[Rfam]
RNA sequence: CCGAUACGCGCUUCAUGGACGUUUCCUCCCUAAACUACGGCGGCGCGCUUCGGUGCGCCGUUUUUUUUGGCGCCC
Numbered sequence: 001c002c003g004a005u006a007c008g009c010g011c012u013u014c015a016u017g018g019a020c021g022u023u024u025c026c027u028c029c030c031u032a033a034a035c036u037a038c039g040g041c042g043g044c045g046c047g048c049u050u051c052g053g054u055g056c057g058c059c060g061u062u063u064u065u066u067u068u069g070g071c072g073c074c075c
Stems, first nucleotide, its partner, number of pairs: 001018002041060008
RNA: Makes More Granules Regulator RNA (mmgR)
Organism: Gluconacetobacter takamatsuzukensis